[Rfam]
RNA sequence: UAGAACUCUUAACUUGAGAAGUGGAAUGAUAGAGUAACGUCUUGAAACGCUUCCCCUAAUACUCCGACAUGCGCCUUCUAGUUUUGCGACAUAAGAAGGGGUCUGAAGCUCGGUGAAGUCAUCUGAAAAAUUACCGAAGUACCUAUUUUAACAGGCAACCGAAAAGGAUCUCAGAGGUGAGUCCCGUAGUUGAUAGGGUGGGGGUCACAAAA
Numbered sequence: 001u002a003g004a005a006c007u008c009u010u011a012a013c014u015u016g017a018g019a020a021g022u023g024g025a026a027u028g029a030u031a032g033a034g035u036a037a038c039g040u041c042u043u044g045a046a047a048c049g050c051u052u053c054c055c056c057u058a059a060u061a062c063u064c065c066g067a068c069a070u071g072c073g074c075c076u077u078c079u080a081g082u083u084u085u086g087c088g089a090c091a092u093a094a095g096a097a098g099g100g101g102u103c104u105g106a107a108g109c110u111c112g113g114u115g116a117a118g119u120c121a122u123c124u125g126a127a128a129a130a131u132u133a134c135c136g137a138a139g140u141a142c143c144u145a146u147u148u149u150a151a152c153a154g155g156c157a158a159c160c161g162a163a164a165a166g167g168a169u170c171u172c173a174g175a176g177g178u179g180a181g182u183c184c185c186g187u188a189g190u191u192g193a194u195a196g197g198g199u200g201g202g203g204g205u206c207a208c209a210a211a212a
Stems, first nucleotide, its partner, number of pairs: 018053006031043002034040001054204004064113004068105002071102002074099006081092001120200005129191006135161002142155003166184003170181004
The record is a 212-nucleotide RNA from Bacillus cereus, which matches "Group II catalytic intron D1-D4-5" in Rfam. Rfam 15.1 lists 720 matches to the family in 418 species. On this family, see Bonen and Vogel, Trends Genet 2001: "The ins and outs of group II introns". Rfam links the family to the GO term Group II intron splicing. From the family's description: Group II introns are found in rRNA, tRNA and mRNA of organelles in fungi, plants and protists, and also in mRNA in bacteria.